[Rfam]
RNA sequence: CCGGGCUGGGGAAGGGCUGCUGGGUGCUGGGUCCCAGCCAGUCCCACCCGUGCCCGAGAUCAGCUCCCAGGUGGGCUCCGAGCUGGGCUCACCUGUGCAGUAACAGGUGUGAGCAUUCAUGAAGCAUUUUGAUGGUCAUGUAUGAUACUGCAUACAACA
Number, nucleotide and partner (000 for none) at each position: 001c000002c000003g055004g054005g053006c052007u000008g049009g048010g047011g000012a000013a000014g000015g043016g042017c041018u040019g038020c037021u036022g035023g034024g033025u000026g000027c000028u000029g000030g000031g000032u000033c024034c023035c022036a021037g020038c019039c000040a018041g017042u016043c015044c000045c000046a000047c010048c009049c008050g000051u000052g006053c005054c004055c003056g000057a000058g000059a000060u000061c000062a000063g000064c000065u000066c000067c086068c085069a084070g000071g000072u080073g079074g078075g000076c000077u000078c074079c073080g072081a000082g000083c000084u069085g068086g067087g000088c000089u000090c000091a000092c000093c000094u154095g153096u152097g151098c150099a149100g148101u147102a146103a000104c144105a143106g000107g000108u000109g000110u138111g137112a136113g000114c134115a133116u132117u131118c000119a000120u000121g128122a127123a000124g000125c000126a000127u122128u121129u000130u000131g117132a116133u115134g114135g000136u112137c111138a110139u000140g000141u000142a000143u105144g104145a000146u102147a101148c100149u099150g098151c097152a096153u095154a094155c000156a000157a000158c000159a000
RNA: Small Cajal body specific RNA 16